A member of the RNA family "Small nucleolar RNA SNORD24" from Danio rerio, 72 nucleotides long.
The literature on the family includes a 1995 paper in Nucleic Acids Res by Qu et al., "U24, a novel intron-encoded small nucleolar RNA with two 12 nt long, phylogenetically conserved complementarities to 28S rRNA".
A search with the family's covariance model found it, with a score of 64 bits.
Gene Ontology terms of the family: nucleolus and RNA processing.
[Rfam]
RNA sequence: UGCAGAUGAUGUGAAGAAUAUUUGCUAUCUGAGUAGUAAAUGCGGACAGUUUCCACCAAGAUCACUGAUGCA
Numbered sequence: 001u002g003c004a005g006a007u008g009a010u011g012u013g014a015a016g017a018a019u020a021u022u023u024g025c026u027a028u029c030u031g032a033g034u035a036g037u038a039a040a041u042g043c044g045g046a047c048a049g050u051u052u053c054c055a056c057c058a059a060g061a062u063c064a065c066u067g068a069u070g071c072a
Stems, first nucleotide, its partner, number of pairs: 001072004